[Rfam]
RNA sequence: AUGAAAGCAAGGGGAGAGACUGCAAGGAUGCAGCGCCGAAGGAGCAAACACAAUUAGGGUGUGAAUCUCUCAGGCAAAAAGACUCUUGCUCGACG
Number, nucleotide and partner (000 for none) at each position: 001a000002u000003g000004a000005a000006a090007g089008c088009a087010a086011g085012g084013g083014g000015a000016g000017a000018g000019a000020c033021u032022g031023c030024a000025a000026g000027g000028a000029u000030g023031c022032a021033g020034c000035g075036c074037c073038g071039a070040a000041g000042g069043a068044g067045c000046a000047a000048a062049c061050a060051c059052a000053a000054u000055u000056a000057g000058g000059g051060u050061g049062u048063g000064a000065a000066u000067c044068u043069c042070u039071c038072a000073g037074g036075c035076a000077a000078a000079a000080a000081g000082a000083c013084u012085c011086u010087u009088g008089c007090u006091c000092g000093a000094c000095g000